[Rfam]
RNA: c-di-GMP-I riboswitch aptamer
Organism: Mesobacillus subterraneus
RNA sequence: UUAUUAGUGGGGCAAAAUCAUCGAAAGAUGGUGACGCAAAGCUAUAGGGACUUCUUCCGAUAUGGAAUGUCAGCCAGCUACCAUC
Numbered sequence: 001u002u003a004u005u006a007g008u009g010g011g012g013c014a015a016a017a018u019c020a021u022c023g024a025a026a027g028a029u030g031g032u033g034a035c036g037c038a039a040a041g042c043u044a045u046a047g048g049g050a051c052u053u054c055u056u057c058c059g060a061u062a063u064g065g066a067a068u069g070u071c072a073g074c075c076a077g078c079u080a081c082c083a084u085c
Base pairs, nucleotide, nucleotide: 012037013036017032018031019030020029021028022027040079041078042077043076047075048074049071050070051069056066057065058064059063